[Rfam]
RNA: 6C RNA
RNA sequence: AUGAGUUCAGUCCGACCCCCCGGGGCUGAACUCCUGACGACCCCCGUCCCUCCCCCCUGGCGGGGGUCGUCCCAU
Numbered sequence: 001a002u003g004a005g006u007u008c009a010g011u012c013c014g015a016c017c018c019c020c021c022g023g024g025g026c027u028g029a030a031c032u033c034c035u036g037a038c039g040a041c042c043c044c045c046g047u048c049c050c051u052c053c054c055c056c057c058u059g060g061c062g063g064g065g066g067u068c069g070u071c072c073c074a075u
Base pairs, nucleotide, nucleotide: 003034004032005031006030007029008028009027010026011025012024013023036071037070038069039068040067041066042065043064044063045062046061047060048059